[Rfam]
RNA sequence: CAGAAGUGUGUCUAGGGUUCCGUCUAAUUAAUUAUUAGAGUCUGGACCAAGCGUCACAAGGUAUCUAAUCGAUACUACACUUUUAGGAUAAAAGCCUGAGAGAU
Numbered sequence: 001c002a003g004a005a006g007u008g009u010g011u012c013u014a015g016g017g018u019u020c021c022g023u024c025u026a027a028u029u030a031a032u033u034a035u036u037a038g039a040g041u042c043u044g045g046a047c048c049a050a051g052c053g054u055c056a057c058a059a060g061g062u063a064u065c066u067a068a069u070c071g072a073u074a075c076u077a078c079a080c081u082u083u084u085a086g087g088a089u090a091a092a093a094g095c096c097u098g099a100g101a102g103a104u
Base pairs, nucleotide, nucleotide: 007058008057009056010055012053015048016047020045021044022042023039024038025037026036027035028034059076061075062074063073064072065071080102085097086096087095

About this RNA: The record is a 104-nucleotide RNA sequence from Candidatus Atribacteria bacterium MT.SAG.1, which matches "Guanidine-I riboswitch aptamer" in Rfam. On this family, see Nelson et al., Mol Cell 2017: "Metabolism of Free Guanidine in Bacteria Is Regulated by a Widespread Riboswitch Class". NCBI's taxonomy places the organism under Bacteria, Pseudomonadati, Atribacterota. The match comes from Rfam's covariance-model search (63 bits).